The record is a 120-nucleotide RNA sequence from Nesidiocoris tenuis, which matches "U5 spliceosomal RNA" in Rfam. On this family, see Zwieb, Nucleic Acids Res 1997: "The uRNA database".

[Rfam]
RNA sequence: GAGCUCUAGUCUGUCUUCAACACAAAUAUACCUCUCGCCUUUUACUAAAGAUUUCUGUGAAGAGGGGCCAUUAUUGAGUCUGUAACCUAUUGAAAAGUAGUGGAAUAAACAUGUUCACUU
Numbered sequence: 001g002a003g004c005u006c007u008a009g010u011c012u013g014u015c016u017u018c019a020a021c022a023c024a025a026a027u028a029u030a031c032c033u034c035u036c037g038c039c040u041u042u043u044a045c046u047a048a049a050g051a052u053u054u055c056u057g058u059g060a061a062g063a064g065g066g067g068c069c070a071u072u073a074u075u076g077a078g079u080c081u082g083u084a085a086c087c088u089a090u091u092g093a094a095a096a097g098u099a100g101u102g103g104a105a106u107a108a109a110c111a112u113g114u115u116c117a118c119u120u
Base pairs, nucleotide, nucleotide: 003079004078005077006076009068010067011066012065014063015062016061017060018059019058028054030052032050033049035047097120099119100118101117102116103115104114
Rfam classes the family as a spliceosomal small nuclear RNA. The organism belongs to Nesidiocoris, within Eukaryota. A search with the family's covariance model found it, with a score of 47 bits.